This 138-nucleotide RNA sequence from Cinclus mexicanus belongs to the Rfam family "Small nucleolar RNA SNORA15". Its family is annotated with nucleolus and RNA processing in the Gene Ontology. A reference for the family is Huttenhofer et al. (2001), "RNomics: an experimental approach that identifies 201 candidates for novel, small, non-messenger RNAs in mouse", EMBO J. Rfam describes the family as follows. ACA15 is a member of the H/ACA class of snoRNA that guide the sites of modification of uridines to pseudouridines. A search with the family's covariance model found it, with a score of 65 bits. It is annotated as an H/ACA-box small nucleolar RNA. Pairs were carried over by alignment from the consensus structure, which was predicted with RNAfold.
RNA sequence: GCAUGGAUGAAUUCUGCACUAGCUUUCCUCAGUGGCUGAUGCAGUCAGACACCAUGCCAGAGCAAAUUCCUUUUUUUCCAUUGUGUCUCGUGUGCUUUUUUAUGGGAUUGGGCAUGCCCUUGGAAGGGGAAUACAUCA
Numbered sequence: 001g002c003a004u005g006g007a008u009g010a011a012u013u014c015u016g017c018a019c020u021a022g023c024u025u026u027c028c029u030c031a032g033u034g035g036c037u038g039a040u041g042c043a044g045u046c047a048g049a050c051a052c053c054a055u056g057c058c059a060g061a062g063c064a065a066a067u068u069c070c071u072u073u074u075u076u077u078c079c080a081u082u083g084u085g086u087c088u089c090g091u092g093u094g095c096u097u098u099u100u101u102a103u104g105g106g107a108u109u110g111g112g113c114a115u116g117c118c119c120u121u122g123g124a125a126g127g128g129g130a131a132u133a134c135a136u137c138a
Base pairs, nucleotide, nucleotide: 001057002056003055004054005053006052014044015043016042017041018040071131072130073129074127075126076125077124078123079122080121090117091116092115093114094113095112096111097110